[Rfam]
The record is a 130-nucleotide sequence from Punica granatum, which matches "small nucleolar RNA snoR126" in Rfam. The source organism's lineage runs through Eukaryota, Streptophyta, Embryophyta, Spermatophyta and Punica. The family's RNA type in Rfam is C/D-box small nucleolar RNA. A reference for the family is Chen and Wu (2009), "Mining small RNA sequencing data: a new approach to identify small nucleolar RNAs in Arabidopsis", Nucleic Acids Res. Rfam links the family to the GO terms RNA processing and nucleolus.

RNA sequence: AGGCUGUGACGACUCCAAACAUUUCUCGAUGCUGAGAGUAUGUUGAACCAUACGGACCGGUGCGCGUAUACGUAUUCUGUACGUAUAUGUCUGCUCUUGUGAUGACUGCGUUUGUGCGUGUCUGAGCCUC
Numbered sequence: 001a002g003g004c005u006g007u008g009a010c011g012a013c014u015c016c017a018a019a020c021a022u023u024u025c026u027c028g029a030u031g032c033u034g035a036g037a038g039u040a041u042g043u044u045g046a047a048c049c050a051u052a053c054g055g056a057c058c059g060g061u062g063c064g065c066g067u068a069u070a071c072g073u074a075u076u077c078u079g080u081a082c083g084u085a086u087a088u089g090u091c092u093g094c095u096c097u098u099g100u101g102a103u104g105a106c107u108g109c110g111u112u113u114g115u116g117c118g119u120g121u122c123u124g125a126g127c128c129u130c
Stems, first nucleotide, its partner, number of pairs: 001129004